RNA sequence: CUGCGCCCAUCAAAGGCUUAGGCAGAAGGCACGCGCAUGUUUCUCGACCACGCAGUGAUAGCCGGCGUCAUGACGGUGGGGCUGAUGAUGGUGAUUUAUUCAAGUGUCGGACUGGUCAUCUGGAAAGACUCACCCCGGCGCGGCAGACGCUGAGUUUUCUAUAAAAGAGCACGCAAGGCAUUUUGGGCAACUUCGGUUGCCCAUUUUUUUU
Numbered sequence: 001c002u003g004c005g006c007c008c009a010u011c012a013a014a015g016g017c018u019u020a021g022g023c024a025g026a027a028g029g030c031a032c033g034c035g036c037a038u039g040u041u042u043c044u045c046g047a048c049c050a051c052g053c054a055g056u057g058a059u060a061g062c063c064g065g066c067g068u069c070a071u072g073a074c075g076g077u078g079g080g081g082c083u084g085a086u087g088a089u090g091g092u093g094a095u096u097u098a099u100u101c102a103a104g105u106g107u108c109g110g111a112c113u114g115g116u117c118a119u120c121u122g123g124a125a126a127g128a129c130u131c132a133c134c135c136c137g138g139c140g141c142g143g144c145a146g147a148c149g150c151u152g153a154g155u156u157u158u159c160u161a162u163a164a165a166a167g168a169g170c171a172c173g174c175a176a177g178g179c180a181u182u183u184u185g186g187g188c189a190a191c192u193u194c195g196g197u198u199g200c201c202c203a204u205u206u207u208u209u210u211u
Stems, first nucleotide, its partner, number of pairs: 010103001013100001052062002080089001082087001169179002172177001185202007
This 211-nucleotide RNA from Pseudomonas graminis belongs to the Rfam family "PhrS".
The source organism's lineage runs through Bacteria, Pseudomonadati, Pseudomonadota, Pseudomonadales and Pseudomonas.
Rfam classes the family as a small RNA.
It scores 126 bits against the family's covariance model.